Shown here is a 109-nucleotide sequence from Bacteroides helcogenes, a member of the family "Bacteroides sRNA BTnc049". The literature on the family includes a 2020 paper in Nat Commun by Ryan et al., "A high-resolution transcriptome map identifies small RNA regulation of metabolism in the gut microbe Bacteroides thetaiotaomicron". It is annotated as a small RNA.
RNA sequence: GAACAGAUAGGAGUUGUGAAACUCCGCCAAUAGAAUAGUUUAGUUAAGUCUAGUUUAGUUUUUGUGUGAAGCACUUCCUUCGUAAGCGAACGUUGGAAGUGCUUUUAUU
Numbered sequence: 001g002a003a004c005a006g007a008u009a010g011g012a013g014u015u016g017u018g019a020a021a022c023u024c025c026g027c028c029a030a031u032a033g034a035a036u037a038g039u040u041u042a043g044u045u046a047a048g049u050c051u052a053g054u055u056u057a058g059u060u061u062u063u064g065u066g067u068g069a070a071g072c073a074c075u076u077c078c079u080u081c082g083u084a085a086g087c088g089a090a091c092g093u094u095g096g097a098a099g100u101g102c103u104u105u106u107a108u109u
Base pairs, nucleotide, nucleotide: 003065004064005063006062007061010025011024012023013022014021015020037056038055040053041052042051043050071102072101073100074099075098076097077096078095081092082091083090